Shown here is a 105-nucleotide RNA sequence from Catenaria anguillulae, a member of the family "Small nucleolar RNA R38". Pairs were carried over by alignment from the consensus structure, which was predicted with PFOLD. A reference for the family is Bachellerie et al. (1995), "Antisense snoRNAs: a family of nucleolar RNAs with long complementarities to rRNA", Trends Biochem Sci. Rfam links the family to the GO terms nucleolus and RNA processing. From the family's description: snoR38 is a C/D box small nucleolar RNA conserved across yeast, human, Arabidopsis and rice. It is encoded in the intron of elongation factor-1 gamma in both pombe and cerevisiae. snoR38 guides the methylation of 2'-O-ribose sites in 28S rRNA. The organism belongs to Catenaria anguillulae, within Eukaryota.
RNA sequence: ACAAGAGUGUGAUGAUUGAUUACAUUAAAAAUUUUACAGUUAUCCCUGGCUUACGGGUGUGGUAACCCAUACGAUGGUGAGGGAAUGUUCUCAACUGAUUCUUGU
Numbered sequence: 001a002c003a004a005g006a007g008u009g010u011g012a013u014g015a016u017u018g019a020u021u022a023c024a025u026u027a028a029a030a031a032u033u034u035u036a037c038a039g040u041u042a043u044c045c046c047u048g049g050c051u052u053a054c055g056g057g058u059g060u061g062g063u064a065a066c067c068c069a070u071a072c073g074a075u076g077g078u079g080a081g082g083g084a085a086u087g088u089u090c091u092c093a094a095c096u097g098a099u100u101c102u103u104g105u
Stems, first nucleotide, its partner, number of pairs: 001105007